[Rfam]
RNA sequence: AAAAACUCAGCAGGGGUGACCUGAGAACACAUGAAACCGGAGAGAUGUAAUGGUCAUCACAGUCGUUGAAUGCACAUGUGUUCUCAUGUCGACCCUGUCGAGUUCCA
Numbered sequence: 001a002a003a004a005a006c007u008c009a010g011c012a013g014g015g016g017u018g019a020c021c022u023g024a025g026a027a028c029a030c031a032u033g034a035a036a037c038c039g040g041a042g043a044g045a046u047g048u049a050a051u052g053g054u055c056a057u058c059a060c061a062g063u064c065g066u067u068g069a070a071u072g073c074a075c076a077u078g079u080g081u082u083c084u085c086a087u088g089u090c091g092a093c094c095c096u097g098u099c100g101a102g103u104u105c106c107a
Base pairs, nucleotide, nucleotide: 007101008100011097012096013095014094017091018090019089023085024084025083026082027081028080029079030078031077032076
A member of the RNA family "MIR398 microRNA precursor family" from Capsella rubella, 107 nucleotides long. Gene Ontology terms of the family: miRNA-mediated post-transcriptional gene silencing and RISC complex.